[Rfam]
RNA: mir-10 microRNA precursor family
RNA sequence: CGUGAUCUACCCUGUAGAUCCGGGCUUUUGUAGAUUUUUUUAAAUCAGAAGCUCGUCUCUACAGGUAUCUUACGG
Numbered sequence: 001c002g003u004g005a006u007c008u009a010c011c012c013u014g015u016a017g018a019u020c021c022g023g024g025c026u027u028u029u030g031u032a033g034a035u036u037u038u039u040u041u042a043a044a045u046c047a048g049a050a051g052c053u054c055g056u057c058u059c060u061a062c063a064g065g066u067a068u069c070u071u072a073c074g075g
Base pairs, nucleotide, nucleotide: 002073003072004071005070010065011064016060017059018058021055022054023053024052025051026050027049028048029047030046